[Rfam]
RNA sequence: CCCAGCCUCUGCUCCCCGAGUCCCCCCUGCUGCUCCCCCCCCUUCCCCAGUGCCACUGGGGAAGGGGGGGUGAGCAGCAGGGGGGACUCAGGGAGCAGUGCCUCUCUGCA
Numbered sequence: 001c002c003c004a005g006c007c008u009c010u011g012c013u014c015c016c017c018g019a020g021u022c023c024c025c026c027c028u029g030c031u032g033c034u035c036c037c038c039c040c041c042c043u044u045c046c047c048c049a050g051u052g053c054c055a056c057u058g059g060g061g062a063a064g065g066g067g068g069g070g071u072g073a074g075c076a077g078c079a080g081g082g083g084g085g086a087c088u089c090a091g092g093g094a095g096c097a098g099u100g101c102c103u104c105u106c107u108g109c110a
Stems, first nucleotide, its partner, number of pairs: 010097007018089002021086014036070013
mraW RNA: a 110-nucleotide RNA from Sphenodon punctatus. The base pairs follow the family's consensus structure, which is taken from published work. The match comes from Rfam's covariance-model search (54 bits).